[Rfam]
Rfam assigns this 117-nucleotide sequence from Falsigemmobacter intermedius to the family "ALIL pseudoknot".
RNA sequence: AGCAUAUUUUGCGAUGGCGGAGCUCGACCGCCGAUCGAAGUAAUGGUGGGUUUUAUUGAUGCCCAUCGGGGCAGCCACGGGGUCGAGCCGAUCUGCAGCCUUCUGCCGAUUGCCCCA
Numbered sequence: 001a002g003c004a005u006a007u008u009u010u011g012c013g014a015u016g017g018c019g020g021a022g023c024u025c026g027a028c029c030g031c032c033g034a035u036c037g038a039a040g041u042a043a044u045g046g047u048g049g050g051u052u053u054u055a056u057u058g059a060u061g062c063c064c065a066u067c068g069g070g071g072c073a074g075c076c077a078c079g080g081g082g083u084c085g086a087g088c089c090g091a092u093c094u095g096c097a098g099c100c101u102u103c104u105g106c107c108g109a110u111u112g113c114c115c116c117a
Stems, first nucleotide, its partner, number of pairs: 016032005079116004089112002092109002095106004
The source organism's lineage runs through Bacteria, Alphaproteobacteria, Rhodobacterales, Paracoccaceae and Falsigemmobacter. The base pairs follow the family's consensus structure, which is taken from published work. Rfam classes the family as a cis-regulatory element.